[Rfam]
RNA: Vault RNA
Organism: Nomascus leucogenys
RNA sequence: GGGCUGGCUUCAGCUCAGCGGUUACUUCGCGUGUCAUCAAACCACCUGCGGAUUGUUCGAGACCUGCGGGCGCUCUUACUGCUGAAGU
Numbered sequence: 001g002g003g004c005u006g007g008c009u010u011c012a013g014c015u016c017a018g019c020g021g022u023u024a025c026u027u028c029g030c031g032u033g034u035c036a037u038c039a040a041a042c043c044a045c046c047u048g049c050g051g052a053u054u055g056u057u058c059g060a061g062a063c064c065u066g067c068g069g070g071c072g073c074u075c076u077u078a079c080u081g082c083u084g085a086a087g088u
Base pairs, nucleotide, nucleotide: 002083003082004081006079007077013071014070015069016068018067019066020065021064026061027060028059029058